[Rfam]
RNA sequence: UAAGGAGUAAUAAAUUCUUUCUUGUUCUAUCAAGCAAGAGGGAUUAUUGCUCCUUUAUUUU
Dot-bracket structure: .((((((((((((.(((..(((((......))....)))))).))))))))))))......
RNA: Plastid-psbA-2 3UTR RNA